Nucleotides: 067
Base pairs, nucleotide, nucleotide: 010035011034012033013032026056027055028053029052030051031050037045038044
Number, partner (000 for none) and nucleotide at each position: 001000a002000u003000a004000a005000u006000c007000g008000g009000u010035a011034g012033g013032c014000a015000u016000u017000u018000g019000a020000a021000c022000u023000g024000u025000a026056u027055u028053g029052u030051g031050c032013g033012c034011c035010u036000a037045a038044c039000a040000u041000a042000a043000a044038g045037u046000u047000a048000a049000a050031g051030c052029a053028c054000u055027a056026a057000a058000a059000a060000a061000g062000g063000a064000g065000u066000a067000a
About this RNA:
A member of the RNA family "SAM-V (S-adenosyl methionine) riboswitch aptamer" from Candidatus Pelagibacter sp. HTCC7211, 67 nucleotides long. It is one of the family's seed sequences. Rfam's curators write: SAM-V riboswitch is a cis-regulatory element that was recognised in marine bacteria it recognise S-adenosylmethione (SAM).